[Rfam]
RNA: Plastid-psbA-3 3UTR RNA
RNA sequence: GAAGGAGCAAUACCAACCCUCUUGAUAAAACAAGAAAUACAGUAUUGCUCCUUCAUUU
Numbered sequence: 001g002a003a004g005g006a007g008c009a010a011u012a013c014c015a016a017c018c019c020u021c022u023u024g025a026u027a028a029a030a031c032a033a034g035a036a037a038u039a040c041a042g043u044a045u046u047g048c049u050c051c052u053u054c055a056u057u058u
Stems, first nucleotide, its partner, number of pairs: 001054013020035005
Dot-bracket structure: (((((((((((((......(((((......)))))......)))))))))))))....